[Rfam]
A member of the RNA family "tRNA" from Austropuccinia psidii, 82 nucleotides long. Rfam classes the family as a transfer RNA. NCBI's taxonomy places the organism under Eukaryota, Opisthokonta, Basidiomycota, Pucciniomycotina, Austropuccinia psidii. It scores 60 bits against the family's covariance model.

RNA sequence: GACACUAUGGCCGAGUGGUUAAGGCGCUUCCCUGCUAAGGAAGUGGGUUCUGCCCGCGCGCGUUCGAAUCGCGCUGGUGUCG
Numbered sequence: 001g002a003c004a005c006u007a008u009g010g011c012c013g014a015g016u017g018g019u020u021a022a023g024g025c026g027c028u029u030c031c032c033u034g035c036u037a038a039g040g041a042a043g044u045g046g047g048u049u050c051u052g053c054c055c056g057c058g059c060g061c062g063u064u065c066g067a068a069u070c071g072c073g074c075u076g077g078u079g080u081c082g
Stems, first nucleotide, its partner, number of pairs: 001081007010025003027043005058074005